[Rfam]
RNA: MIR6450 microRNA precursor family
Organism: Populus deltoides
RNA sequence: AGGACCCAAUUCUCUUGGGUCCUACGUCGAGUCCCAAUUCUCUUGGGUCCAGUGUCAGGACCCAAGGGUAAUGGGUCUUGCAUCAGGACCUAAGGUUAAUGGGUCCU
Numbered sequence: 001a002g003g004a005c006c007c008a009a010u011u012c013u014c015u016u017g018g019g020u021c022c023u024a025c026g027u028c029g030a031g032u033c034c035c036a037a038u039u040c041u042c043u044u045g046g047g048u049c050c051a052g053u054g055u056c057a058g059g060a061c062c063c064a065a066g067g068g069u070a071a072u073g074g075g076u077c078u079u080g081c082a083u084c085a086g087g088a089c090c091u092a093a094g095g096u097u098a099a100u101g102g103g104u105c106c107u
Stems, first nucleotide, its partner, number of pairs: 001107008013095011029079003033075004043065008
Dot-bracket structure: ((((((((....(((((((((((.....(((.((((......((((((((.......))))))))......)))).))).....)))))))))))....))))))))